Description:
A member of the RNA family "Mason-Pfizer monkey virus packaging signal" from Nannospalax galili, 276 nucleotides long. The base pairs follow the family's consensus structure, which was predicted with PFOLD. The literature on the family includes a 2004 paper in Virus Res by Mustafa et al., "Mutational analysis of the predicted secondary RNA structure of the Mason-Pfizer monkey virus packaging signal". From the family's description: This family represents a group of sequences that are related to the Mason-Pfizer monkey virus (MPMV) packaging signal. The match comes from Rfam's covariance-model search (146 bits). Rfam classes the family as a cis-regulatory element.

RNA sequence: UGGCGGCCAACGUGGGGCUGGAUACAGAGGAUCCAGUGAGGGAAGAAGGUGUCCCCAAGGAAUGCAUUCCACAAGAAUUCUUCACUCUGGACACGCCGCGGGAACCUGCCUCGGCUACAACCAGAAGUAACUACCGACAUCUGAUUAUGGGACAAGAAUUAAACAGGCAUGAAAUUUAUGUUCGGCAAUUGCAGGAUGCCUUACGGAUGCGAGGAGUAAAGGUUAAAAUAGAGGAUCUAUUGAGGUUCUUUGAUUUCAUUAAGGAAACCUGUCCUU
Numbered sequence: 001u002g003g004c005g006g007c008c009a010a011c012g013u014g015g016g017g018c019u020g021g022a023u024a025c026a027g028a029g030g031a032u033c034c035a036g037u038g039a040g041g042g043a044a045g046a047a048g049g050u051g052u053c054c055c056c057a058a059g060g061a062a063u064g065c066a067u068u069c070c071a072c073a074a075g076a077a078u079u080c081u082u083c084a085c086u087c088u089g090g091a092c093a094c095g096c097c098g099c100g101g102g103a104a105c106c107u108g109c110c111u112c113g114g115c116u117a118c119a120a121c122c123a124g125a126a127g128u129a130a131c132u133a134c135c136g137a138c139a140u141c142u143g144a145u146u147a148u149g150g151g152a153c154a155a156g157a158a159u160u161a162a163a164c165a166g167g168c169a170u171g172a173a174a175u176u177u178a179u180g181u182u183c184g185g186c187a188a189u190u191g192c193a194g195g196a197u198g199c200c201u202u203a204c205g206g207a208u209g210c211g212a213g214g215a216g217u218a219a220a221g222g223u224u225a226a227a228a229u230a231g232a233g234g235a236u237c238u239a240u241u242g243a244g245g246u247u248c249u250u251u252g253a254u255u256u257c258a259u260u261a262a263g264g265a266a267a268c269c270u271g272u273c274c275u276u
Stems, first nucleotide, its partner, number of pairs: 007029001012025003034049001037046001084128003087124002097113002100110002136153001140151004160203003164198002210252008220238005261276005